Shown here is a 154-nucleotide RNA sequence from Camphora micrantha, a member of the family "Small nucleolar RNA snoR2/U65". The family has 11 seed sequences and 908 matches in Rfam 15.1. Rfam classes the family as an H/ACA-box small nucleolar RNA. Pairs were carried over by alignment from the consensus structure, which was predicted with WAR.
[Rfam]
RNA sequence: UGCCCAAUGCCACGUUGCUGGUAGCAGCUAGUUGAUUGCGGUGACCAGCAAUGCUAUGAUUGGGCAUAGAGAAACUUUCUUUCGCAUCCUGAUAGGAACCUGUGGAUUCAUUUUUAUUAGUUUAUCUGCAGAGCCGAAUACUGCGAUUACAUUC
Number, nucleotide and partner (000 for none) at each position: 001u000002g065003c064004c063005c062006a061007a060008u059009g057010c000011c000012a000013c053014g052015u051016u050017g049018c048019u000020g046021g045022u044023a000024g039025c038026a037027g000028c000029u000030a000031g000032u000033u000034g000035a000036u000037u026038g025039c024040g000041g000042u000043g000044a022045c021046c020047a000048g018049c017050a016051a015052u014053g013054c000055u000056a000057u009058g000059a008060u007061u006062g005063g004064g003065c002066a000067u000068a000069g000070a000071g000072a000073a000074a000075c000076u000077u000078u000079c000080u000081u000082u146083c145084g144085c143086a142087u000088c000089c000090u000091g000092a000093u000094a000095g135096g134097a000098a000099c000100c131101u130102g129103u000104g127105g126106a125107u124108u000109c000110a000111u000112u000113u000114u000115u000116a000117u000118u000119a000120g000121u000122u000123u000124a107125u106126c105127u104128g000129c102130a101131g100132a000133g000134c096135c095136g000137a000138a000139u000140a000141c000142u086143g085144c084145g083146a082147u000148u000149a000150c000151a000152u000153u000154c000